[Rfam]
RNA: mir-183 microRNA precursor family
Organism: Branchiostoma floridae
RNA sequence: CACGGUCUAUGGCACUGGUAGAAUUCACUGAUCGUAGACACCAGUGAUUCUUCAGUCAGCCAUACACCGUG
Numbered sequence: 001c002a003c004g005g006u007c008u009a010u011g012g013c014a015c016u017g018g019u020a021g022a023a024u025u026c027a028c029u030g031a032u033c034g035u036a037g038a039c040a041c042c043a044g045u046g047a048u049u050c051u052u053c054a055g056u057c058a059g060c061c062a063u064a065c066a067c068c069g070u071g
Stems, first nucleotide, its partner, number of pairs: 003069004008064006016054003023049001025047006
Dot-bracket structure: ..((((.((((((..(((....(.((((((...........)))))).)..)))....)))))).))))..